[Rfam]
RNA sequence: UACACGCUCCUUAGAUCCACCUCUUGAGGGCGCUCCUGCACUGCUGCAGUCUGGAGGGCCCUCAGCAACUUUACCGGUUGUACAGUGAGAGGUGCUUGAGUCAUUGGCGUGUGAGAGCAGUACACCUGCCCCCUGGCCCCCCGCUGCACUGGCCCCUCGCUGGCUCCGCCUGCAGGAAGCUCCCAGUGCAGCCAGGCCCGUGGGCGGACACU
Numbered sequence: 001u002a003c004a005c006g007c008u009c010c011u012u013a014g015a016u017c018c019a020c021c022u023c024u025u026g027a028g029g030g031c032g033c034u035c036c037u038g039c040a041c042u043g044c045u046g047c048a049g050u051c052u053g054g055a056g057g058g059c060c061c062u063c064a065g066c067a068a069c070u071u072u073a074c075c076g077g078u079u080g081u082a083c084a085g086u087g088a089g090a091g092g093u094g095c096u097u098g099a100g101u102c103a104u105u106g107g108c109g110u111g112u113g114a115g116a117g118c119a120g121u122a123c124a125c126c127u128g129c130c131c132c133c134u135g136g137c138c139c140c141c142c143g144c145u146g147c148a149c150u151g152g153c154c155c156c157u158c159g160c161u162g163g164c165u166c167c168g169c170c171u172g173c174a175g176g177a178a179g180c181u182c183c184c185a186g187u188g189c190a191g192c193c194a195g196g197c198c199c200g201u202g203g204g205c206g207g208a209c210a211c212u
Stems, first nucleotide, its partner, number of pairs: 002112007010100005018094007025064006033056004040050004065081006126207005133200001135198004145190008
About this RNA
Shown here is a 212-nucleotide RNA from Conger conger, a member of the family "Small nucleolar RNA SNORA53". Lineage of the source: Eukaryota > Metazoa > Eumetazoa > Anguilliformes > Conger. Rfam classes the family as an H/ACA-box small nucleolar RNA. Rfam describes the family as follows. The snoRNA ACA53 belongs to the H/ACA family of pseudouridylation guide snoRNAs. Gene Ontology terms of the family: RNA processing and nucleolus. The family's consensus secondary structure was predicted with RNAalifold.